[Rfam]
RNA sequence: UUGUAAAGGUAUGUUGGGCUGUAGAGCUUAUUCUUAUGUUUUAUCACAUAAGGCAUAUUGAUGAA
Numbered sequence: 001u002u003g004u005a006a007a008g009g010u011a012u013g014u015u016g017g018g019c020u021g022u023a024g025a026g027c028u029u030a031u032u033c034u035u036a037u038g039u040u041u042u043a044u045c046a047c048a049u050a051a052g053g054c055a056u057a058u059u060g061a062u063g064a065a
Stems, first nucleotide, its partner, number of pairs: 008059006014030001017028004033052007
This 65-nucleotide RNA sequence from Sebaldella termitidis belongs to the Rfam family "S4-Fusobacteriales ribosomal protein leader". Taxonomically the source falls in Sebaldella termitidis (Bacteria, Fusobacteriati, Fusobacteriota, Leptotrichiaceae). The family is grouped with related families in Rfam's "Ribosomal Protein S4 Leader clan". It is annotated as a cis-regulatory leader.